[Rfam]
A member of the RNA family "Eukaryotic large subunit ribosomal RNA" from Medioppia subpectinata, 470 nucleotides of a longer RNA. It scores 3017 bits against the family's covariance model.

RNA sequence: GACUAGUCGUUGCGAUAGAAAUCCUGCUCAGUACGAGAGGAACCGCAGGUUCGGACAUUUGGUUCAUGUGCUUGAUCGACCGAUCAGUGGCGCGAAGCUACCAUCCGUUGGAUUAUGACUGAACGCCUCUAAGUCAGAAUCCAGUCUAAUCACUGCAACGAUACUGAAUGUGCGCGUAGAGCUCGGAGGUCGAACUAGGGGGCUUGUCUAGCUGUGUUGUUUGGCGGUCUCGGCCGCCGAGCAGUGCGUAGACUCGUCUCCUCGACACAGCCCAUUACUUGGUGACAAAGCAUUCGCAGAAGUCCAGGCCUAUGGCUUCUGUUGCUGUUACAGCCAGAGUUUACUCAUCUCGAGCUCUUGAGCACCGAAUCAUCCGUAGACGACCUAGGUACCUGCCGGGGUGUUGUACUUAGAAGAGCAGUCACCAUACUGCGAUCUAUUGAGACUCAGCCUUUGACUGGAAGGUUCGU
Numbered sequence: 001g002a003c004u005a006g007u008c009g010u011u012g013c014g015a016u017a018g019a020a021a022u023c024c025u026g027c028u029c030a031g032u033a034c035g036a037g038a039g040g041a042a043c044c045g046c047a048g049g050u051u052c053g054g055a056c057a058u059u060u061g062g063u064u065c066a067u068g069u070g071c072u073u074g075a076u077c078g079a080c081c082g083a084u085c086a087g088u089g090g091c092g093c094g095a096a097g098c099u100a101c102c103a104u105c106c107g108u109u110g111g112a113u114u115a116u117g118a119c120u121g122a123a124c125g126c127c128u129c130u131a132a133g134u135c136a137g138a139a140u141c142c143a144g145u146c147u148a149a150u151c152a153c154u155g156c157a158a159c160g161a162u163a164c165u166g167a168a169u170g171u172g173c174g175c176g177u178a179g180a181g182c183u184c185g186g187a188g189g190u191c192g193a194a195c196u197a198g199g200g201g202g203c204u205u206g207u208c209u210a211g212c213u214g215u216g217u218u219g220u221u222u223g224g225c226g227g228u229c230u231c232g233g234c235c236g237c238c239g240a241g242c243a244g245u246g247c248g249u250a251g252a253c254u255c256g257u258c259u260c261c262u263c264g265a266c267a268c269a270g271c272c273c274a275u276u277a278c279u280u281g282g283u284g285a286c287a288a289a290g291c292a293u294u295c296g297c298a299g300a301a302g303u304c305c306a307g308g309c310c311u312a313u314g315g316c317u318u319c320u321g322u323u324g325c326u327g328u329u330a331c332a333g334c335c336a337g338a339g340u341u342u343a344c345u346c347a348u349c350u351c352g353a354g355c356u357c358u359u360g361a362g363c364a365c366c367g368a369a370u371c372a373u374c375c376g377u378a379g380a381c382g383a384c385c386u387a388g389g390u391a392c393c394u395g396c397c398g399g400g401g402u403g404u405u406g407u408a409c410u411u412a413g414a415a416g417a418g419c420a421g422u423c424a425c426c427a428u429a430c431u432g433c434g435a436u437c438u439a440u441u442g443a444g445a446c447u448c449a450g451c452c453u454u455u456g457a458c459u460g461g462a463a464g465g466u467u468c469g470u
Stems, first nucleotide, its partner, number of pairs: 006162008016148004021051001023049005052107004060100003067094005072087006109143003116136005170363002173360002176357001367468005373387001376384001393460001395458001397456002399453003403446002411439003415436001418433005

NCBI's taxonomy places the organism under Eukaryota, Bilateria, Acari, Brachypylina, Medioppia.